[Rfam]
Rfam assigns this 104-nucleotide RNA sequence from Clostridium kluyveri to the family "SAM riboswitch aptamer (S box leader)".
RNA sequence: UUCUUAUCAAGAGAGGCGGAGGGACUGGCCCUAUGAUGCCCGGCAACCUGAAUGUUAUUUGUUCAAUGGUGCCAAUUCCUGCGGGGUAACCUGAAAGAUGAGAU
Numbered sequence: 001u002u003c004u005u006a007u008c009a010a011g012a013g014a015g016g017c018g019g020a021g022g023g024a025c026u027g028g029c030c031c032u033a034u035g036a037u038g039c040c041c042g043g044c045a046a047c048c049u050g051a052a053u054g055u056u057a058u059u060u061g062u063u064c065a066a067u068g069g070u071g072c073c074a075a076u077u078c079c080u081g082c083g084g085g086g087u088a089a090c091c092u093g094a095a096a097g098a099u100g101a102g103a104u
Stems, first nucleotide, its partner, number of pairs: 002103007013041001015040003021031003025081001027079002042073004047069002049065004077096001082093004